RNA sequence: AAAGCCUAGAGGUCAUAGCAGAAUUAUUCACAGUGCGGCCAUGUCAGAUGCUAACAAAUCUGUGAAUUCUGCU
Numbered sequence: 001a002a003a004g005c006c007u008a009g010a011g012g013u014c015a016u017a018g019c020a021g022a023a024u025u026a027u028u029c030a031c032a033g034u035g036c037g038g039c040c041a042u043g044u045c046a047g048a049u050g051c052u053a054a055c056a057a058a059u060c061u062g063u064g065a066a067u068u069c070u071g072c073u
Base pairs, nucleotide, nucleotide: 011040012039013038014037017073018072019071020070021069022068023067025035026034045062046061047060048059049058
A member of the RNA family "Mammalian CPEB3 ribozyme" from Crocodylus porosus, 73 nucleotides long.